[Rfam]
RNA sequence: ACGGGUCGCCGGCCCGGUCACGCCAUGACCGGAGCCGAGCAGCCCUUGGGGUGAAGCCGCACUCGUGCGGCCGGGCAACUUCGCCAGCCCGAAUCCGACAGGUCAUCCUUCACAGGCGGCUGACGAAGGGUUG
Numbered sequence: 001a002c003g004g005g006u007c008g009c010c011g012g013c014c015c016g017g018u019c020a021c022g023c024c025a026u027g028a029c030c031g032g033a034g035c036c037g038a039g040c041a042g043c044c045c046u047u048g049g050g051g052u053g054a055a056g057c058c059g060c061a062c063u064c065g066u067g068c069g070g071c072c073g074g075g076c077a078a079c080u081u082c083g084c085c086a087g088c089c090c091g092a093a094u095c096c097g098a099c100a101g102g103u104c105a106u107c108c109u110u111c112a113c114a115g116g117c118g119g120c121u122g123a124c125g126a127a128g129g130g131u132u133g
Stems, first nucleotide, its partner, number of pairs: 007118004015027002031111004049096003057070004073090004
Source information:
The record is a 133-nucleotide RNA sequence from Streptomyces sp. ISL-12, which matches "c-di-AMP riboswitch aptamer (ydaO/yuaA leader)" in Rfam. NCBI's taxonomy places the organism under Bacteria, Bacillati, Actinomycetota, Streptomycetaceae, Streptomyces. The match comes from Rfam's covariance-model search (42 bits). Pairs were carried over by alignment from the consensus structure. From the family's description: This family represents a conserved RNA structure found upstream of the ydaO and yuaA genes in Bacillus subtilis and related genes in other bacteria.